[Rfam]
RNA: mir-277 microRNA precursor family
RNA sequence: AACUUGACGGGCCCCGUGCCAGAAGCGCGUUUACACAGGCUAUGAAUUUUAUGUAAAUGCACUAUCUGGUACGAUAGCCCGUCGGGU
Numbered sequence: 001a002a003c004u005u006g007a008c009g010g011g012c013c014c015c016g017u018g019c020c021a022g023a024a025g026c027g028c029g030u031u032u033a034c035a036c037a038g039g040c041u042a043u044g045a046a047u048u049u050u051a052u053g054u055a056a057a058u059g060c061a062c063u064a065u066c067u068g069g070u071a072c073g074a075u076a077g078c079c080c081g082u083c084g085g086g087u
Stems, first nucleotide, its partner, number of pairs: 008081004015073009025062001027060009
Dot-bracket structure: .......((((...(((((((((.(.(((((((((................))))))))).)..)))))))))....))))......